[Rfam]
RNA sequence: UGACCACUCAAUAUAUUGAGUUAAGCCCAGACGGACAGGCGGGUCAGAAGCCGA
Numbered sequence: 001u002g003a004c005c006a007c008u009c010a011a012u013a014u015a016u017u018g019a020g021u022u023a024a025g026c027c028c029a030g031a032c033g034g035a036c037a038g039g040c041g042g043g044u045c046a047g048a049a050g051c052c053g054a
Stems, first nucleotide, its partner, number of pairs: 001046005006021006
Shown here is a 54-nucleotide sequence from Clostridium sp. CAG:7, a member of the family "Streptococcus sRNA SpF59 (ldcC RNA)". The family's RNA type in Rfam is small RNA. It is one of the family's seed sequences. Lineage of the source: Bacteria > Bacillati > Clostridia > Clostridiaceae > Clostridium.